Background:
The record is a 114-nucleotide RNA sequence from Trichinella zimbabwensis, which matches "Potassium channel RNA editing signal" in Rfam. Taxonomically the source falls in Trichinella (Eukaryota, Bilateria, Protostomia, Dorylaimia). The family's consensus secondary structure is taken from published work.
RNA sequence: AUUGGAUUCGGUGAUAUGGUGCCGAAAACUUACAUGGGCAUGCUGGUUGGUAGCUUGUGCGCUUUGACCGGUGUGCUUACGAUUGCCCUUCCAGUGCCAGUUAUUGUCAGCAAU
Numbered sequence: 001a002u003u004g005g006a007u008u009c010g011g012u013g014a015u016a017u018g019g020u021g022c023c024g025a026a027a028a029c030u031u032a033c034a035u036g037g038g039c040a041u042g043c044u045g046g047u048u049g050g051u052a053g054c055u056u057g058u059g060c061g062c063u064u065u066g067a068c069c070g071g072u073g074u075g076c077u078u079a080c081g082a083u084u085g086c087c088c089u090u091c092c093a094g095u096g097c098c099a100g101u102u103a104u105u106g107u108c109a110g111c112a113a114u
Stems, first nucleotide, its partner, number of pairs: 001114002004111001009106003013102003018097001021095002037077004049063003